[Rfam]
RNA: Small nucleolar RNA snR34
RNA sequence: AAUCAAAAAGUAUAUUUCAGGAGGUAUUUGCCACGGCGGAUUAACGUUAAUUGUCAAGUUAUAUUCGUUGCCAUUUAAAGAAUAUAAAAUAUUUUUUACUUGUCACCUCCGAGACAAAAUUUUUUAUACCCGGAUAGGAAGUUUGAGAUUCGUGUGUCUCUUAAGUGAGAUGAUGAACUUGAAUGUCGAUAGAAGGGUAACAUUC
Numbered sequence: 001a002a003u004c005a006a007a008a009a010g011u012a013u014a015u016u017u018c019a020g021g022a023g024g025u026a027u028u029u030g031c032c033a034c035g036g037c038g039g040a041u042u043a044a045c046g047u048u049a050a051u052u053g054u055c056a057a058g059u060u061a062u063a064u065u066c067g068u069u070g071c072c073a074u075u076u077a078a079a080g081a082a083u084a085u086a087a088a089a090u091a092u093u094u095u096u097u098a099c100u101u102g103u104c105a106c107c108u109c110c111g112a113g114a115c116a117a118a119a120u121u122u123u124u125u126a127u128a129c130c131c132g133g134a135u136a137g138g139a140a141g142u143u144u145g146a147g148a149u150u151c152g153u154g155u156g157u158c159u160c161u162u163a164a165g166u167g168a169g170a171u172g173a174u175g176a177a178c179u180u181g182a183a184u185g186u187c188g189a190u191a192g193a194a195g196g197g198u199a200a201c202a203u204u205c
Stems, first nucleotide, its partner, number of pairs: 035069006042063002048061004108197003124193002141184003146180001149177003154174002156171005
Dot-bracket structure: ..................................((((((.((....((((......))))))))))))......................................(((.............((...............(((..(..(((..(((((((......))))).)))))..).))).......)).)))........